[Rfam]
RNA: mir-10 microRNA precursor family
RNA sequence: CGUGAUCUACCCUGAAGAUCCGGGCUUUUGUAGUGUUGUUAUCAACAGAAGCUCGUCUCUACAGGUAUCUCACGG
Numbered sequence: 001c002g003u004g005a006u007c008u009a010c011c012c013u014g015a016a017g018a019u020c021c022g023g024g025c026u027u028u029u030g031u032a033g034u035g036u037u038g039u040u041a042u043c044a045a046c047a048g049a050a051g052c053u054c055g056u057c058u059c060u061a062c063a064g065g066u067a068u069c070u071c072a073c074g075g
Stems, first nucleotide, its partner, number of pairs: 002073004010065002016060003021055010